[Rfam]
RNA sequence: GUAGCGGUCACCGCAAGGUUUUCUGUCGGAUUCGACAGAACAGACUUCAGCGUUGUGCCUGGCACAGCGCAACCGGCACUGCCGGAUUUUGCUAACCCGCUGGUGAAGACACCAGC
Numbered sequence: 001g002u003a004g005c006g007g008u009c010a011c012c013g014c015a016a017g018g019u020u021u022u023c024u025g026u027c028g029g030a031u032u033c034g035a036c037a038g039a040a041c042a043g044a045c046u047u048c049a050g051c052g053u054u055g056u057g058c059c060u061g062g063c064a065c066a067g068c069g070c071a072a073c074c075g076g077c078a079c080u081g082c083c084g085g086a087u088u089u090u091g092c093u094a095a096c097c098c099g100c101u102g103g104u105g106a107a108g109a110c111a112c113c114a115g116c
Stems, first nucleotide, its partner, number of pairs: 010019003021040008050070008073085004099116006
Shown here is a 116-nucleotide RNA sequence from Pseudomonas taeanensis, a member of the family "Pseudomon-groES RNA".